[Rfam]
RNA sequence: UUGUCAUCUUAAGCGCCAGAACUGAACCAGCUGUUCAGAUGUUUCGAGUUUUUCUGCGCAUUCGGUCAUCGUCGUCUCAGAUAGCACCGGGACGUGUUCAUUCCUUAGACAACGCAGAUAACGGAAGCAUUGGGCGGAGGUCCAGUUGACGAGGUGAAGGUGUUCGAAUCAUUCGGCGGGGGCCUUCCGGUGAACGAUCCAUACCGCAAAGUCGAAGUGCAAAACGUCUGGGCGACCGGACCGACAAGAGUUCGACGGGAUCAAGA
Numbered sequence: 001u002u003g004u005c006a007u008c009u010u011a012a013g014c015g016c017c018a019g020a021a022c023u024g025a026a027c028c029a030g031c032u033g034u035u036c037a038g039a040u041g042u043u044u045c046g047a048g049u050u051u052u053u054c055u056g057c058g059c060a061u062u063c064g065g066u067c068a069u070c071g072u073c074g075u076c077u078c079a080g081a082u083a084g085c086a087c088c089g090g091g092a093c094g095u096g097u098u099c100a101u102u103c104c105u106u107a108g109a110c111a112a113c114g115c116a117g118a119u120a121a122c123g124g125a126a127g128c129a130u131u132g133g134g135c136g137g138a139g140g141u142c143c144a145g146u147u148g149a150c151g152a153g154g155u156g157a158a159g160g161u162g163u164u165c166g167a168a169u170c171a172u173u174c175g176g177c178g179g180g181g182g183c184c185u186u187c188c189g190g191u192g193a194a195c196g197a198u199c200c201a202u203a204c205c206g207c208a209a210a211g212u213c214g215a216a217g218u219g220c221a222a223a224a225c226g227u228c229u230g231g232g233c234g235a236c237c238g239g240a241c242c243g244a245c246a247a248g249a250g251u252u253c254g255a256c257g258g259g260a261u262c263a264a265g266a
Base pairs, nucleotide, nucleotide: 020147021146022145023144024143026141027140156187157186158185159184160183164176165175166174167173188206189205190204191203192202211256212255213254214253215252216251226241227240228239229238230237231236
A member of the RNA family "glmS glucosamine-6-phosphate activated ribozyme aptamer" from Paenibacillus sp. PvR098, 266 nucleotides long. This entry contains a glucosamine-6-phosphate activated ribozyme that is found in the mRNA for GlmS. GlmS is an enzyme that uses fructose-6-phosphate and glutamine to generate glucosamine-6-phosphate. A search with the family's covariance model found it, with a score of 67 bits. For this family Rfam cites "Backbone and nucleobase contacts to glucosamine-6-phosphate in the glmS ribozyme" (Jansen et al., Nat Struct Mol Biol, 2006). Lineage of the source: Bacteria > Bacillati > Caryophanales > Paenibacillaceae > Paenibacillus. Pairs were carried over by alignment from the consensus structure, which is taken from published work. Gene Ontology terms of the family: catalytic activity and regulation of gene expression.